[Rfam]
RNA sequence: CCGUGGCUGGAACAGGUGCUAAAGGGUUCCUUUAGCACCGGCUAGUAUUACCAGCCGGUGUUAAAGACCCUUUAGCACCGGUUCCAGCCACAUA
Numbered sequence: 001c002c003g004u005g006g007c008u009g010g011a012a013c014a015g016g017u018g019c020u021a022a023a024g025g026g027u028u029c030c031u032u033u034a035g036c037a038c039c040g041g042c043u044a045g046u047a048u049u050a051c052c053a054g055c056c057g058g059u060g061u062u063a064a065a066g067a068c069c070c071u072u073u074a075g076c077a078c079c080g081g082u083u084c085c086a087g088c089c090a091c092a093u094a
Stems, first nucleotide, its partner, number of pairs: 003091011015079013030066001034062003038058002045051002
Rfam assigns this 94-nucleotide sequence from Sorghum bicolor to the family "MIR5387 microRNA precursor family". The base pairs follow the family's consensus structure, which was predicted with RNAalifold. The match comes from Rfam's covariance-model search (70 bits).